[Rfam]
Shown here is a 92-nucleotide RNA from Streptomyces sp. Ru73, a member of the family "sodF sRNA". Taxonomically the source falls in Streptomyces (Bacteria, Actinomycetes, Kitasatosporales, Streptomycetaceae). On this family, see Kim et al., Nucleic Acids Res 2014: "Inverse regulation of Fe- and Ni-containing SOD genes by a Fur family regulator Nur through small RNA processed from 3'UTR of the sodF mRNA". The match comes from Rfam's covariance-model search (94 bits). Gene Ontology terms of the family: regulation of mRNA stability, negative regulation of translation and mRNA binding.
RNA sequence: GCGGCCUGCCUCGUGAUCGUCUUCUCACCUUUCACCGGGCAGGCGGACAAAAGGAACCGCCCCCGCGAGGACGUGACUCGCGGGGGCGGUUC
Number, nucleotide and partner (000 for none) at each position: 001g000002c045003g044004g000005c043006c042007u041008g040009c039010c038011u037012c000013g035014u034015g033016a032017u000018c000019g029020u000021c000022u000023u000024c000025u000026c000027a000028c000029c019030u000031u000032u016033c015034a014035c013036c000037g011038g010039g009040c008041a007042g006043g005044c003045g002046g000047a000048c000049a000050a000051a000052a000053g000054g092055a091056a090057c089058c088059g087060c086061c085062c084063c083064c082065g081066c080067g079068a078069g077070g000071a000072c000073g000074u000075g000076a000077c069078u068079c067080g066081c065082g064083g063084g062085g061086g060087c059088g058089g057090u056091u055092c054